RNA sequence: UGUCGCCCGCUUCGUCAGGGUCAAGGCCAUGACGACUGUGCGAAAAGUUGAUCUGGUCGUGCCGCUGGCCAAACAGGCCACCGCCAUGCGCAUCGCAGAUACCGCCGGGCUAGAUACCCAGGGCAGGUCUGGCGCAGUUUCCCUGCUGACUGAUCGCGACAGUCGGCGGGGCGACGUAGAUAGCACGAUAAACCG
Numbered sequence: 001u002g003u004c005g006c007c008c009g010c011u012u013c014g015u016c017a018g019g020g021u022c023a024a025g026g027c028c029a030u031g032a033c034g035a036c037u038g039u040g041c042g043a044a045a046a047g048u049u050g051a052u053c054u055g056g057u058c059g060u061g062c063c064g065c066u067g068g069c070c071a072a073a074c075a076g077g078c079c080a081c082c083g084c085c086a087u088g089c090g091c092a093u094c095g096c097a098g099a100u101a102c103c104g105c106c107g108g109g110c111u112a113g114a115u116a117c118c119c120a121g122g123g124c125a126g127g128u129c130u131g132g133c134g135c136a137g138u139u140u141c142c143c144u145g146c147u148g149a150c151u152g153a154u155c156g157c158g159a160c161a162g163u164c165g166g167c168g169g170g171g172c173g174a175c176g177u178a179g180a181u182a183g184c185a186c187g188a189u190a191a192a193c194c195g
Stems, first nucleotide, its partner, number of pairs: 004042003012035006019028003057188006063083002066080005087136005096131004102127002105121001107119003138174002141171009154159001

A member of the RNA family "RT-15 RNA" from Sideroxydans lithotrophicus, 195 nucleotides long. The base pairs follow the family's consensus structure, which is taken from published work. The family's RNA type in Rfam is small RNA.